[Rfam]
RNA sequence: GGCAGAGUAGGGAUCUGCGUGUCGCCCCCAUGGGGGCAUAGUGCCGGCGGAACGGGGAGUUGUCCGCCGGACGAAAUGGCAUCGCCUUGCAGUGUAGGUCCCGCAUCCCGCUGCC
Numbered sequence: 001g002g003c004a005g006a007g008u009a010g011g012g013a014u015c016u017g018c019g020u021g022u023c024g025c026c027c028c029c030a031u032g033g034g035g036g037c038a039u040a041g042u043g044c045c046g047g048c049g050g051a052a053c054g055g056g057g058a059g060u061u062g063u064c065c066g067c068c069g070g071a072c073g074a075a076a077u078g079g080c081a082u083c084g085c086c087u088u089g090c091a092g093u094g095u096a097g098g099u100c101c102c103g104c105a106u107c108c109c110g111c112u113g114c115c
Base pairs, nucleotide, nucleotide: 001115002114003113004112005111010102011101012100013099014098015097016096017095018094019093020091021090022089041072042071044070045069046068047067048066049065050064051063055108056107057106059104076088078086079085

A member of the RNA family "THF (Tetrahydrofolate) riboswitch aptamer" from Vescimonas coprocola, 115 nucleotides long. The match comes from Rfam's covariance-model search (76 bits). From the family's description: Tetrahydrofolate (THF) riboswitch was first reported for Ames et al. as an RNA motif in 5' untranslated (5'-UTR)regions of folate transport and biosynthesis genes in Firmicutes genomes. On this family, see Trausch et al., Structure 2011: "The structure of a tetrahydrofolate-sensing riboswitch reveals two ligand binding sites in a single aptamer".